Small nucleolar RNA SNORD26: a 77-nucleotide RNA from Poecilia reticulata. By type it is a C/D-box small nucleolar RNA. Its family is annotated with RNA processing and nucleolus in the Gene Ontology. The match comes from Rfam's covariance-model search (47 bits). For this family Rfam cites "A mammalian gene with introns instead of exons generating stable RNA products" (Tycowski et al., Nature, 1996). NCBI's taxonomy places the organism under Eukaryota, Ctenosquamata, Acanthomorphata, Poeciliidae, Poecilia. The base pairs follow the family's consensus structure, which was predicted with PFOLD.
RNA sequence: CUACAGUGAUGAAUCUUUUGAACUCUCUCUUACCGAAUCAACCUUUGAAGAAAACCCUUUACCAGAUUCUGAGUAGC
Numbered sequence: 001c002u003a004c005a006g007u008g009a010u011g012a013a014u015c016u017u018u019u020g021a022a023c024u025c026u027c028u029c030u031u032a033c034c035g036a037a038u039c040a041a042c043c044u045u046u047g048a049a050g051a052a053a054a055c056c057c058u059u060u061a062c063c064a065g066a067u068u069c070u071g072a073g074u075a076g077c
Stems, first nucleotide, its partner, number of pairs: 001076004